[Rfam]
RNA sequence: CAGAUUGAUGACAAAGUGCUCGCCGCGAUGAAACCAGCCAGAUCGUCAAGACACCGUGAAUACCGCCUUGUAGGCUCGUUCCGCACCAUCCCUGGCGCGGAGACUUG
Numbered sequence: 001c002a003g004a005u006u007g008a009u010g011a012c013a014a015a016g017u018g019c020u021c022g023c024c025g026c027g028a029u030g031a032a033a034c035c036a037g038c039c040a041g042a043u044c045g046u047c048a049a050g051a052c053a054c055c056g057u058g059a060a061u062a063c064c065g066c067c068u069u070g071u072a073g074g075c076u077c078g079u080u081c082c083g084c085a086c087c088a089u090c091c092c093u094g095g096c097g098c099g100g101a102g103a104c105u106u107g
Stems, first nucleotide, its partner, number of pairs: 014106004020028003030077002041066001045063002051057002081100004086095003
RNA: Yersinia sRNA 224